The family of this 71-nucleotide RNA from Crocosphaera subtropica is "Cyano-1 RNA".
The base pairs follow the family's consensus structure, which is taken from published work.
Lineage of the source: Bacteria > Bacillati > Oscillatoriophycideae > Chroococcales > Crocosphaera subtropica.
[Rfam]
RNA sequence: UGGUGUGAGAGUGGAUCGGAUAAAAAGCACUUGGGGUCGAAACACGGCAAGACUCCCAGGUGCUUUUUUGC
Numbered sequence: 001u002g003g004u005g006u007g008a009g010a011g012u013g014g015a016u017c018g019g020a021u022a023a024a025a026a027g028c029a030c031u032u033g034g035g036g037u038c039g040a041a042a043c044a045c046g047g048c049a050a051g052a053c054u055c056c057c058a059g060g061u062g063c064u065u066u067u068u069u070g071c
Stems, first nucleotide, its partner, number of pairs: 015067001024066005031059005036053003
Notes
Rfam 15.1 lists 283 matches to the family in 194 species. Rfam classes the family as a small RNA.